Shown here is a 271-nucleotide part of an RNA from Methanothermobacter tenebrarum, a member of the family "Archaeal large subunit ribosomal RNA". Rfam links the family to the GO terms structural constituent of ribosome and ribosome. The organism belongs to Methanothermobacter, within Archaea.
[Rfam]
RNA sequence: GAGUUUAGGGUUGUGGCGAGGCUAAGAAGCAAAACGCUUCGCAGCCAUAGGGAAACCAACAAGUCCGCAACAACCAUUUUGGUUGUGAGGGACGGGGUCCCAAAAGGGCCCGGAGUCACAGCCCUAAGACCCGAAGCCGGUCGAUCUAGCCCUGGGUAGGGUGAAGUCGCUCUUACGAGUGAUGGAGGCCCGCAGGGGUGUUGUCGUGCAAAACGCUCCCCUGACCUGGGGCUAGGGGUGAAAGGCCAAUCAAGGCCGGUGACAGCUGGUU
Numbered sequence: 001g002a003g004u005u006u007a008g009g010g011u012u013g014u015g016g017c018g019a020g021g022c023u024a025a026g027a028a029g030c031a032a033a034a035c036g037c038u039u040c041g042c043a044g045c046c047a048u049a050g051g052g053a054a055a056c057c058a059a060c061a062a063g064u065c066c067g068c069a070a071c072a073a074c075c076a077u078u079u080u081g082g083u084u085g086u087g088a089g090g091g092a093c094g095g096g097g098u099c100c101c102a103a104a105a106g107g108g109c110c111c112g113g114a115g116u117c118a119c120a121g122c123c124c125u126a127a128g129a130c131c132c133g134a135a136g137c138c139g140g141u142c143g144a145u146c147u148a149g150c151c152c153u154g155g156g157u158a159g160g161g162u163g164a165a166g167u168c169g170c171u172c173u174u175a176c177g178a179g180u181g182a183u184g185g186a187g188g189c190c191c192g193c194a195g196g197g198g199u200g201u202u203g204u205c206g207u208g209c210a211a212a213a214c215g216c217u218c219c220c221c222u223g224a225c226c227u228g229g230g231g232c233u234a235g236g237g238g239u240g241a242a243a244g245g246c247c248a249a250u251c252a253a254g255g256c257c258g259g260u261g262a263c264a265g266c267u268g269g270u271u
Base pairs, nucleotide, nucleotide: 005127006126007125008124009123010122011121012120013119014118015117016116017115020046021045022044023043026040027039028038029037050057051056063093064092065091066090070086071085072084073083074082075081076080096110097109098108099107130269131268133266137259138258139257140256141255142254146235147234148233149232150231151230152229153228154227155226156225157223159191160190161189162188166183167182168181169180170179171178172177195220196219197218198217200216201215203214204213237247238246239245